[Rfam]
RNA sequence: AAUGAUAAUUCUCUGGAAUCUCUGUAAUUGCAUUGAUGAUUCCCCUGAACCCUUUUAUUCUGAUGACUGUAGACUUCAU
Numbered sequence: 001a002a003u004g005a006u007a008a009u010u011c012u013c014u015g016g017a018a019u020c021u022c023u024g025u026a027a028u029u030g031c032a033u034u035g036a037u038g039a040u041u042c043c044c045c046u047g048a049a050c051c052c053u054u055u056u057a058u059u060c061u062g063a064u065g066a067c068u069g070u071a072g073a074c075u076u077c078a079u
Stems, first nucleotide, its partner, number of pairs: 002079004
Rfam assigns this 79-nucleotide sequence from Acipenser ruthenus to the family "Small nucleolar RNA MBII-202". The family's consensus secondary structure was predicted with PFOLD. A search with the family's covariance model found it, with a score of 54 bits. A reference for the family is Huttenhofer et al. (2001), "RNomics: an experimental approach that identifies 201 candidates for novel, small, non-messenger RNAs in mouse", EMBO J.